[Rfam]
Small nucleolar RNA Z161/Z228: an 81-nucleotide sequence from Leersia perrieri. The organism belongs to Leersia, within Eukaryota. Clan: SNORD35 clan. By type it is a C/D-box small nucleolar RNA. On this family, see Chen et al., Nucleic Acids Res 2003: "The high diversity of snoRNAs in plants: identification and comparative study of 120 snoRNA genes from Oryza sativa". Rfam links the family to the GO terms nucleolus and RNA processing.
RNA sequence: GGGCAUAGUGAUGAGAAUAUGUAAAUUAUCUCACAACGGUCUGCUGAGAAUACUUGAUGUGAUAAAUAUUCUCUGAAGCCC
Number, nucleotide and partner (000 for none) at each position: 001g081002g080003g079004c078005a000006u000007a000008g000009u000010g000011a000012u000013g000014a000015g000016a000017a000018u000019a000020u000021g000022u000023a000024a000025a000026u000027u000028a000029u000030c000031u000032c000033a000034c000035a000036a000037c000038g000039g000040u000041c000042u000043g000044c000045u000046g000047a000048g000049a000050a054051u000052a000053c000054u050055u000056g000057a000058u000059g000060u000061g000062a000063u000064a000065a000066a000067u000068a000069u000070u000071c000072u000073c000074u000075g000076a000077a000078g004079c003080c002081c001